[Rfam]
Rfam assigns this 130-nucleotide sequence from Dasypus novemcinctus to the family "Small nucleolar RNA SNORA26". About the family: The snoRNA HBI-6 belong to the H/ACA family of snoRNAs, guiding the pseudouridylation of position U4522 if the 28S rRNA. HBI-6 is the human orthologue of mouse MBI-6 snoRNA. The sequence is in the family's curated seed alignment. Lineage of the source: Eukaryota > Opisthokonta > Chordata > Theria > Dasypus. The family's consensus secondary structure was predicted with RNAalifold. On this family, see Huttenhofer et al., EMBO J 2001: "RNomics: an experimental approach that identifies 201 candidates for novel, small, non-messenger RNAs in mouse".
RNA sequence: GUGCCCUUUUAAGAUUGAUUCAGUGCUUUAAGUGGCUAAUAUAAAAAUGUAGAAGGGUAAAUUAAUUCUCCAUAAAACCCAGAGAGGAGAUUGUAAAACUUCAUUUUGGAUCCUGUCUGGAGUCACAGCU
Numbered sequence: 001g002u003g004c005c006c007u008u009u010u011a012a013g014a015u016u017g018a019u020u021c022a023g024u025g026c027u028u029u030a031a032g033u034g035g036c037u038a039a040u041a042u043a044a045a046a047a048u049g050u051a052g053a054a055g056g057g058u059a060a061a062u063u064a065a066u067u068c069u070c071c072a073u074a075a076a077a078c079c080c081a082g083a084g085a086g087g088a089g090a091u092u093g094u095a096a097a098a099c100u101u102c103a104u105u106u107u108g109g110a111u112c113c114u115g116u117c118u119g120g121a122g123u124c125a126c127a128g129c130u
Stems, first nucleotide, its partner, number of pairs: 002059009014040004019035001021032001068122005079109006087101003091098002